[Rfam]
RNA sequence: GCCUGGAUGAACUUCGGUGGUCCGGUGUGCAGGCUUCAAACCUGUAGCUGCCUAACGGCAGAGUGGUUCGAUUCCACCCUUCAGGC
Numbered sequence: 001g002c003c004u005g006g007a008u009g010a011a012c013u014u015c016g017g018u019g020g021u022c023c024g025g026u027g028u029g030c031a032g033g034c035u036u037c038a039a040a041c042c043u044g045u046a047g048c049u050g051c052c053u054a055a056c057g058g059c060a061g062a063g064u065g066g067u068u069c070g071a072u073u074c075c076a077c078c079c080u081u082c083a084g085g086c
Stems, first nucleotide, its partner, number of pairs: 001086007009078001012027001014025004028046006048061005063077004

This 86-nucleotide RNA sequence from Lepeophtheirus salmonis belongs to the Rfam family "Selenocysteine transfer RNA". The base pairs follow the family's consensus structure, which is taken from published work.